[Rfam]
RNA sequence: CAUGAUUAGCUUAGCUAGGAUUGUUUAGAGGGCAGUCGCAGUCGCCCCAACUCCGAUUCACAAAGCCAUUUUAUUGGCCUUUGCGAGUAGGGUGAGAAACAACAUCGUGUUGGAAACUUUAAUCUUUUUAAAAAAUUAAAGAACUGU
Numbered sequence: 001c002a003u004g005a006u007u008a009g010c011u012u013a014g015c016u017a018g019g020a021u022u023g024u025u026u027a028g029a030g031g032g033c034a035g036u037c038g039c040a041g042u043c044g045c046c047c048c049a050a051c052u053c054c055g056a057u058u059c060a061c062a063a064a065g066c067c068a069u070u071u072u073a074u075u076g077g078c079c080u081u082u083g084c085g086a087g088u089a090g091g092g093u094g095a096g097a098a099a100c101a102a103c104a105u106c107g108u109g110u111u112g113g114a115a116a117c118u119u120u121a122a123u124c125u126u127u128u129u130a131a132a133a134a135a136u137u138a139a140a141g142a143a144c145u146g147u
Stems, first nucleotide, its partner, number of pairs: 006018005030047004038147004051096003056088004061083005066077003100112005117141007125133001

IS605-orfB-II RNA: a 147-nucleotide sequence. The sequence is in the family's curated seed alignment. Rfam classes the family as a small RNA. The family's consensus secondary structure is taken from published work.